[Rfam]
RNA sequence: CCCCACACAUCUAAGCCGGCCCUUUACACAAAUCAAGUGGAAGGGGUGUGCUCGUAGUGGGAACAGCGACGUCUUUUCUAGUGUAUGGAAAUCUAUUUAUUUGUGUGGGACUUCCAAAGGAAGAAAAGAGACAAUU
Numbered sequence: 001c002c003c004c005a006c007a008c009a010u011c012u013a014a015g016c017c018g019g020c021c022c023u024u025u026a027c028a029c030a031a032a033u034c035a036a037g038u039g040g041a042a043g044g045g046g047u048g049u050g051c052u053c054g055u056a057g058u059g060g061g062a063a064c065a066g067c068g069a070c071g072u073c074u075u076u077u078c079u080a081g082u083g084u085a086u087g088g089a090a091a092u093c094u095a096u097u098u099a100u101u102u103g104u105g106u107g108g109g110a111c112u113u114c115c116a117a118a119g120g121a122a123g124a125a126a127a128g129a130g131a132c133a134a135u136u
Stems, first nucleotide, its partner, number of pairs: 004050002019047004025041001027039002077124003089112001092109003

This 136-nucleotide RNA from Ceutorhynchus assimilis belongs to the Rfam family "Small nucleolar RNA SNORA70". Rfam classes the family as an H/ACA-box small nucleolar RNA. Rfam links the family to the GO terms nucleolus and RNA processing. The organism belongs to Ceutorhynchus, within Eukaryota. A reference for the family is Charette and Gray (2000), "Pseudouridine in RNA: what, where, how, and why", IUBMB Life.